[Rfam]
RNA sequence: CCACUCCUGCCAGGAGCGCGCCAGGAGGGCCGGGAAUCCCGGCGUCACCGCGCGCUGCCGGAUGGUCUUCUGAACCCGAGGCGCCAUG
Numbered sequence: 001c002c003a004c005u006c007c008u009g010c011c012a013g014g015a016g017c018g019c020g021c022c023a024g025g026a027g028g029g030c031c032g033g034g035a036a037u038c039c040c041g042g043c044g045u046c047a048c049c050g051c052g053c054g055c056u057g058c059c060g061g062a063u064g065g066u067c068u069u070c071u072g073a074a075c076c077c078g079a080g081g082c083g084c085c086a087u088g
Stems, first nucleotide, its partner, number of pairs: 002083001004081002010061002013058001015056007025049001027045001029043005063078001064076002

Shown here is an 88-nucleotide sequence from Streptomyces lincolnensis, a member of the family "dauA ncRNA motif". Rfam classes the family as a cis-regulatory element. Rfam links the family to the GO term regulation of gene expression. The family's consensus secondary structure is taken from published work. Rfam's curators write: dauA ncRNA motif was reported as a strong cis regulatory motif candidate, with potential to be a cis regulatory riboswitch type, it have been identified in genomes of the genus Streptomyces. For this family Rfam cites "The discovery of novel noncoding RNAs in 50 bacterial genomes" (Narunsky et al., Nucleic Acids Res, 2024). The sequence is in the family's curated seed alignment.